[Rfam]
RNA sequence: GCUCUGCACUUUCCAAAUGGCGGUGCAGGCCGAUCACUAUAUAGGGUGGUCAGCUUGGUUGUCCUCCUUCGGGAAACACACUACAGGAUUCGGUAGAACGCGGAGUAGCCUCGAGCGGAACGCGGAGCCGGU
Numbered sequence: 001g002c003u004c005u006g007c008a009c010u011u012u013c014c015a016a017a018u019g020g021c022g023g024u025g026c027a028g029g030c031c032g033a034u035c036a037c038u039a040u041a042u043a044g045g046g047u048g049g050u051c052a053g054c055u056u057g058g059u060u061g062u063c064c065u066c067c068u069u070c071g072g073g074a075a076a077c078a079c080a081c082u083a084c085a086g087g088a089u090u091c092g093g094u095a096g097a098a099c100g101c102g103g104a105g106u107a108g109c110c111u112c113g114a115g116c117g118g119a120a121c122g123c124g125g126a127g128c129c130g131g132u
Base pairs, nucleotide, nucleotide: 001030002029004028005027006026007025008024009023010022013020014019065074066073067072088132090131091130092129093128094127099124100123101122102121108116109115
Rfam assigns this 132-nucleotide sequence to the family "Bacteriophage Diversity-Generating Retroelement RNA". The sequence is in the family's curated seed alignment. For this family Rfam cites "RNA control of reverse transcription in a diversity-generating retroelement" (Handa et al., Nature, 2025). The family's RNA type in Rfam is small RNA.